A member of the RNA family "Antizyme RNA frameshifting stimulation element" from Panthera leo, 55 nucleotides long. From the family's description: This family represents a structural element which is found in antizyme mRNA and is known to promote frameshifting. Rfam 15.1 lists 1,595 matches to the family in 640 species. The match comes from Rfam's covariance-model search (44 bits).
RNA sequence: UGAUGCCCCUCAGCCACUGUCAAAGAUCCCAGUGGGUGAAGGGGAGGUAGGGAUA
Numbered sequence: 001u002g003a004u005g006c007c008c009c010u011c012a013g014c015c016a017c018u019g020u021c022a023a024a025g026a027u028c029c030c031a032g033u034g035g036g037u038g039a040a041g042g043g044g045a046g047g048u049a050g051g052g053a054u055a
Stems, first nucleotide, its partner, number of pairs: 006043003010039002014035005026054005